[Rfam]
This 236-nucleotide RNA from Paenibacillus lutrae belongs to the Rfam family "T-box leader".
RNA sequence: AAUAAAACGUUGAAGAAAACAAGUACGCCAUAGACCAUUUGCAGAGAGAAGGUUUCGCCUUGACGGCGGCUGCGAGAACCUUCAAUGAAGGAUGGCCGAACGCUCCUUUCAGAGUGUGGGUGAAGCCCAACGGAAGCGGAUCCGUUAUCGUCCGCAAUCGAGGAGAUUGUACAGGAGAGUCAAGGAUUCUGCUGUGCAAUAACCAGGGUGGUACCGCGAAAUUAUUCGUCCCUGUU
Numbered sequence: 001a002a003u004a005a006a007a008c009g010u011u012g013a014a015g016a017a018a019a020c021a022a023g024u025a026c027g028c029c030a031u032a033g034a035c036c037a038u039u040u041g042c043a044g045a046g047a048g049a050a051g052g053u054u055u056c057g058c059c060u061u062g063a064c065g066g067c068g069g070c071u072g073c074g075a076g077a078a079c080c081u082u083c084a085a086u087g088a089a090g091g092a093u094g095g096c097c098g099a100a101c102g103c104u105c106c107u108u109u110c111a112g113a114g115u116g117u118g119g120g121u122g123a124a125g126c127c128c129a130a131c132g133g134a135a136g137c138g139g140a141u142c143c144g145u146u147a148u149c150g151u152c153c154g155c156a157a158u159c160g161a162g163g164a165g166a167u168u169g170u171a172c173a174g175g176a177g178a179g180u181c182a183a184g185g186a187u188u189c190u191g192c193u194g195u196g197c198a199a200u201a202a203c204c205a206g207g208g209u210g211g212u213a214c215c216g217c218g219a220a221a222u223u224a225u226u227c228g229u230c231c232c233u234g235u236u
Base pairs, nucleotide, nucleotide: 007115008114015110016109017108018107027096028095029094030093031092037086038085039084048083049082050081051080052079053078054077055076117129119127120126121125131144132143133142166200167199168198169197170196171195172194173193174192205233206232207231208230216229217228218227219226220225
Dot-bracket structure: ......((......((((........(((((.....(((........((((((((....................))))))))))).....)))))..........))))...)).(.(((...))).).(((........))).....................(((((((((.................)))))))))....((((.......(((((....)))))))))...
Lineage of the source: Bacteria > Bacillati > Caryophanales > Paenibacillaceae > Paenibacillus. Rfam classes the family as a cis-regulatory leader. Uncharged tRNA acts as the effector for transcription antitermination of genes in the T-box leader family. T-boxes are found upstream of many aminoacyl-tRNA synthetase genes and some amino acid biosynthetic genes usually in Gram-positive bacteria.